[Rfam]
RNA sequence: AUCUCUACAAUGCCGAAUCCAUAACAGGUACGGGGGAACCAAUACAUAUACAGGGGAUAAUCCGCAAAUGCGGAGGGGCGCGUUCUCAAUUCUCUCUUUUCCCUAUCCCGACAGCUAACCCCGGAGGCUGACGAAUUCUGAGCU
Numbered sequence: 001a002u003c004u005c006u007a008c009a010a011u012g013c014c015g016a017a018u019c020c021a022u023a024a025c026a027g028g029u030a031c032g033g034g035g036g037a038a039c040c041a042a043u044a045c046a047u048a049u050a051c052a053g054g055g056g057a058u059a060a061u062c063c064g065c066a067a068a069u070g071c072g073g074a075g076g077g078g079c080g081c082g083u084u085c086u087c088a089a090u091u092c093u094c095u096c097u098u099u100u101c102c103c104u105a106u107c108c109c110g111a112c113a114g115c116u117a118a119c120c121c122c123g124g125a126g127g128c129u130g131a132c133g134a135a136u137u138c139u140g141a142g143c144u
Stems, first nucleotide, its partner, number of pairs: 012128003019028002031123005040053001054109003062073004076103003
RNA: c-di-AMP riboswitch aptamer (ydaO/yuaA leader)
Organism: Pelosinus sp. UFO1